Source information:
The record is a 100-nucleotide sequence from Veronia nyctiphanis, which matches "c-di-GMP-I riboswitch aptamer" in Rfam. The organism belongs to Veronia, within Bacteria. It scores 60 bits against the family's covariance model.
RNA sequence: UCAAGUGAAAGGCAAACCAAAGCGAAAGCUUGGGACGCAAAGCCACCGGCCGGAUGAAUAGUUAAGCAAGUACUUUUCAAUCGGCGGCGGGGCUGCCCGG
Numbered sequence: 001u002c003a004a005g006u007g008a009a010a011g012g013c014a015a016a017c018c019a020a021a022g023c024g025a026a027a028g029c030u031u032g033g034g035a036c037g038c039a040a041a042g043c044c045a046c047c048g049g050c051c052g053g054a055u056g057a058a059u060a061g062u063u064a065a066g067c068a069a070g071u072a073c074u075u076u077u078c079a080a081u082c083g084g085c086g087g088c089g090g091g092g093c094u095g096c097c098c099g100g
Stems, first nucleotide, its partner, number of pairs: 012038002017033004022029002041094004046090003049085005
Dot-bracket structure: ...........((...((((.((....))))))...))..((((.((((((((...........................)))))..)))))))......